[Rfam]
RNA sequence: CAAUAUCAUGAUGGUCAAAGCUCAUGGAGAUUGUAGGUCUUUUUGACAUACACUUUCCUCGGGUUU
Number, nucleotide and partner (000 for none) at each position: 001c000002a000003a000004u000005a000006u000007c000008a000009u000010g000011a000012u000013g000014g000015u000016c000017a000018a066019a065020g064021c063022u062023c061024a000025u000026g000027g000028a000029g000030a000031u000032u052033g051034u050035a049036g000037g047038u000039c000040u000041u000042u000043u000044u000045g000046a000047c037048a000049u035050a034051c033052a032053c000054u000055u000056u000057c000058c000059u000060c000061g023062g022063g021064u020065u019066u018
The family of this 66-nucleotide RNA sequence from Streptococcus parauberis is "Streptococcus sRNA Spd-sr37". The family's RNA type in Rfam is small RNA. The base pairs follow the family's consensus structure, which was predicted with WAR.